[Rfam]
A member of the RNA family "Fluoride riboswitch aptamer (crcB RNA motif)" from Clostridium sp. CAG:7, 77 nucleotides long. The organism belongs to Clostridium, within Bacteria. A search with the family's covariance model found it, with a score of 48 bits. Gene Ontology terms of the family: positive regulation of gene expression and response to fluoride.
RNA sequence: AUAAGCGCCGGGAAUGAAGUUCUCCCAAGGGAAACCUGAACCGCUUAGAAAUGUAAGCUGAUGACUUCUGUGAUGAA
Numbered sequence: 001a002u003a004a005g006c007g008c009c010g011g012g013a014a015u016g017a018a019g020u021u022c023u024c025c026c027a028a029g030g031g032a033a034a035c036c037u038g039a040a041c042c043g044c045u046u047a048g049a050a051a052u053g054u055a056a057g058c059u060g061a062u063g064a065c066u067u068c069u070g071u072g073a074u075g076a077a
Base pairs, nucleotide, nucleotide: 010026011025012024013023016068017067018066019065020064021063043058044057045056046055